[Rfam]
RNA sequence: CUCUAAUGAUGAGUUCUUUUGUGUGCCACGUGUCUGGGCCACUGAAUGUUUAUGAUGGUAAUGAGGAUCUGAAAGAG
Numbered sequence: 001c002u003c004u005a006a007u008g009a010u011g012a013g014u015u016c017u018u019u020u021g022u023g024u025g026c027c028a029c030g031u032g033u034c035u036g037g038g039c040c041a042c043u044g045a046a047u048g049u050u051u052a053u054g055a056u057g058g059u060a061a062u063g064a065g066g067a068u069c070u071g072a073a074a075g076a077g
Stems, first nucleotide, its partner, number of pairs: 001077004
The record is a 77-nucleotide RNA sequence from Betta splendens, which matches "Small nucleolar RNA SNORD66" in Rfam. The family has 20 seed sequences and 1,346 matches in Rfam 15.1. Rfam describes the family as follows. snoRNA HBII-142 is part of the C/D family of snoRNAs. It is the human orthologue of the mouse MBII-142 snoRNA and is predicted to guide 2'O-ribose methylation of small 18S rRNA at residue C1272. A reference for the family is Huttenhofer et al. (2001), "RNomics: an experimental approach that identifies 201 candidates for novel, small, non-messenger RNAs in mouse", EMBO J.